[Rfam]
RNA sequence: CGGAUGACUCCGCGAUGCUGUCGGACCCCCGACCCGGCAGCUUCGCGGGGUUUUCCA
Number, nucleotide and partner (000 for none) at each position: 001c000002g056003g055004a054005u000006g000007a051008c050009u049010c048011c047012g046013c045014g044015a043016u000017g041018c040019u039020g038021u037022c036023g000024g000025a000026c000027c000028c000029c000030c000031g000032a000033c000034c000035c000036g022037g021038c020039a019040g018041c017042u000043u015044c014045g013046c012047g011048g010049g009050g008051u007052u000053u000054u004055c003056c002057a000
Description
The family of this 57-nucleotide sequence from Pseudonocardiaceae bacterium YIM PH 21723 is "F6 TB sRNA". By type it is a small RNA. The match comes from Rfam's covariance-model search (66 bits). The family's consensus secondary structure is taken from published work.